[Rfam]
RNA sequence: AGGUCAAGUCUGCUGCACCUUUAUCACUGCAGGCACUCGGUCACGCUGUGGGUUUAAUAGCAAACCUUAGGCAUUAUUGCCAAGGGUGUGAUGUGAGGAGGGGUUAAAUGCCCC
Numbered sequence: 001a002g003g004u005c006a007a008g009u010c011u012g013c014u015g016c017a018c019c020u021u022u023a024u025c026a027c028u029g030c031a032g033g034c035a036c037u038c039g040g041u042c043a044c045g046c047u048g049u050g051g052g053u054u055u056a057a058u059a060g061c062a063a064a065c066c067u068u069a070g071g072c073a074u075u076a077u078u079g080c081c082a083a084g085g086g087u088g089u090g091a092u093g094u095g096a097g098g099a100g101g102g103g104u105u106a107a108a109u110g111c112c113c114c
Stems, first nucleotide, its partner, number of pairs: 001020004008034006036097004040092008050067003054063002070081004100114005
RNA: epsC RNA